[Rfam]
RNA sequence: GGCGACCGGACGCCGAAUCCUCGAAGCACUCAGUGCGAAGGGGAGCCGGGGACCCAACUGCAGGAUCAGGAUCGGUUCGAUCCCGGAUCGUCAAGGGGUGAAUCCACAAGGUAGGGCUACUCCGGCCCGAACCCGUCAGCUAACCCGGUAGGCGCUCAGCAGUGCCCCG
Number, nucleotide and partner (000 for none) at each position: 001g000002g000003c000004g000005a000006c000007c000008g000009g000010a000011c154012g153013c152014c151015g000016a000017a000018u044019c043020c042021u041022c040023g000024a000025a000026g000027c000028a000029c000030u000031c000032a000033g000034u000035g000036c000037g000038a000039a000040g022041g021042g020043g019044a018045g149046c148047c147048g146049g145050g144051g000052a000053c000054c000055c095056a000057a000058c000059u000060g000061c000062a000063g000064g000065a000066u000067c000068a000069g000070g000071a000072u000073c000074g000075g000076u000077u000078c000079g000080a000081u000082c000083c000084c000085g000086g000087a000088u000089c000090g000091u000092c000093a000094a000095g055096g134097g133098g132099u000100g000101a000102a000103u000104c111105c110106a000107c000108a000109a000110g105111g104112u000113a000114g128115g127116g126117c125118u000119a000120c000121u000122c000123c000124g000125g117126c116127c115128c114129g000130a000131a000132c098133c097134c096135g000136u000137c000138a000139g000140c000141u000142a000143a000144c050145c049146c048147g047148g046149u045150a000151g014152g013153c012154g011155c000156u000157c000158a000159g000160c000161a000162g000163u000164g000165c000166c000167c000168c000169g000